Rfam assigns this 116-nucleotide sequence from Desulfobacteraceae bacterium SEEP-SAG10 to the family "c-di-GMP-I riboswitch aptamer". GEMM was predicted in a large-scale screen for bacterial structured RNA regulatory elements. It scores 59 bits against the family's covariance model.
[Rfam]
RNA sequence: UCUUGUUAAAGCCAAACCCCGAGAAAUCGGAAGACGGAAAGCCACGGGUCUCAACACUCGCAUUUGACCCUCAUUUAAAGCCUAUCUCUAUUUGAACAGAUAGCCGGGCUACCGAA
Number, nucleotide and partner (000 for none) at each position: 001u000002c000003u000004u000005g000006u000007u000008a000009a000010a000011g000012c037013c036014a000015a000016a000017c000018c000019c030020c029021g028022a027023g000024a000025a000026a000027u022028c021029g020030g019031a000032a000033g000034a000035c000036g013037g012038a000039a000040a110041g109042c108043c107044a000045c106046g105047g104048g101049u100050c099051u000052c000053a000054a000055c000056a000057c000058u000059c000060g000061c000062a000063u000064u000065u000066g000067a000068c000069c000070c000071u000072c000073a000074u000075u000076u000077a000078a000079a000080g000081c000082c000083u000084a000085u000086c000087u000088c000089u000090a000091u000092u000093u000094g000095a000096a000097c000098a000099g050100a049101u048102a000103g000104c047105c046106g045107g043108g042109c041110u040111a000112c000113c000114g000115a000116a000